[Rfam]
Source information
The record is a 102-nucleotide sequence from Pan troglodytes, which matches "Y RNA" in Rfam. It scores 50 bits against the family's covariance model. By type it is a non-coding RNA gene. Taxonomically the source falls in Pan (Eukaryota, Opisthokonta, Euteleostomi, Mammalia).
RNA sequence: AGCUUGUCUGAGUGCAGUGGUGUUUACAACUGGUUGAUCACAACUGGUUACAGAUUUCUUUGUUCUUUCUCUACUCUCACUACUUUACUUGACUAACCAAAA
Numbered sequence: 001a002g003c004u005u006g007u008c009u010g011a012g013u014g015c016a017g018u019g020g021u022g023u024u025u026a027c028a029a030c031u032g033g034u035u036g037a038u039c040a041c042a043a044c045u046g047g048u049u050a051c052a053g054a055u056u057u058c059u060u061u062g063u064u065c066u067u068u069c070u071c072u073a074c075u076c077u078c079a080c081u082a083c084u085u086u087a088c089u090u091g092a093c094u095a096a097c098c099a100a101a102a
Stems, first nucleotide, its partner, number of pairs: 002097001004095001006093003010090002014086001016081005022076001028064003032060002